[Rfam]
Notes: Shown here is a 45-nucleotide RNA from Limoniibacter endophyticus, a member of the family "Guanidine-II riboswitch aptamer (mini-ykkC)". Gene Ontology term of the family: regulation of gene expression. Taxonomically the source falls in Limoniibacter (Bacteria, Pseudomonadati, Alphaproteobacteria, Hyphomicrobiales).
RNA sequence: CGCGCGGGACGACCUGCGUCUUUGACCACUAUCCGGGACGACCCG
Numbered sequence: 001c002g003c004g005c006g007g008g009a010c011g012a013c014c015u016g017c018g019u020c021u022u023u024g025a026c027c028a029c030u031a032u033c034c035g036g037g038a039c040g041a042c043c044c045g
Stems, first nucleotide, its partner, number of pairs: 002019007034045004